The record is a 167-nucleotide sequence from Triticum urartu, which matches "MIR2118 microRNA precursor family" in Rfam. The match comes from Rfam's covariance-model search (108 bits).
[Rfam]
RNA sequence: GCCAAGAAGAGGGCGAGAGAAACUCUAAGAGCAUUGGGAAUAGGAUAAUAGAGGAAAGUCUAGAGCUCAAGUUUUCCUUCGGUGUCAGAGGUACAAAUUUGCUUUGUGUUUUCCCGAUGCCUCGAAUUCCUAUCGAUCUUAGGCACUCCUUCCUCUUCCUUUUGGUU
Numbered sequence: 001g002c003c004a005a006g007a008a009g010a011g012g013g014c015g016a017g018a019g020a021a022a023c024u025c026u027a028a029g030a031g032c033a034u035u036g037g038g039a040a041u042a043g044g045a046u047a048a049u050a051g052a053g054g055a056a057a058g059u060c061u062a063g064a065g066c067u068c069a070a071g072u073u074u075u076c077c078u079u080c081g082g083u084g085u086c087a088g089a090g091g092u093a094c095a096a097a098u099u100u101g102c103u104u105u106g107u108g109u110u111u112u113c114c115c116g117a118u119g120c121c122u123c124g125a126a127u128u129c130c131u132a133u134c135g136a137u138c139u140u141a142g143g144c145a146c147u148c149c150u151u152c153c154u155c156u157u158c159c160u161u162u163u164g165g166u167u
Base pairs, nucleotide, nucleotide: 009158010157011156012155013154015152016151017150019148020147024143025142026141027140028139029138030137032135035132036131037130038129039128040127041126044123045122048118049117051115053114054113055112056111057110058109059108

The organism belongs to Triticum, within Eukaryota.